This 67-nucleotide sequence from Domibacillus iocasae belongs to the Rfam family "Bacillaceae-1 RNA".
RNA sequence: ACAAUAAGAUCGAAGGCUAAGAACGCAGCGUCCUGCUGCAACGCCUUUAUGACCCGCAUCGUGCGGG
Dot-bracket structure: ...........((((((.......(((((.....)))))...))))))....(((((.....)))))

The family's RNA type in Rfam is small RNA.
Lineage of the source: Bacteria > Bacillati > Bacillota > Bacilli > Domibacillus.